[Rfam]
RNA sequence: AGUCGGCUUGGCGACUAUAAAUAGGCUUUUGGCCAAGCGCGGGCUCCCAACUCGGGAGUAUAGCA
Numbered sequence: 001a002g003u004c005g006g007c008u009u010g011g012c013g014a015c016u017a018u019a020a021a022u023a024g025g026c027u028u029u030u031g032g033c034c035a036a037g038c039g040c041g042g043g044c045u046c047c048c049a050a051c052u053c054g055g056g057a058g059u060a061u062a063g064c065a
Stems, first nucleotide, its partner, number of pairs: 001016004006038006025064003032040001043059006
The record is a 65-nucleotide sequence from Paenibacillus sp. TCA20, which matches "Pistol ribozyme" in Rfam. The base pairs follow the family's consensus structure, which is taken from published work. Gene Ontology term of the family: catalytic activity.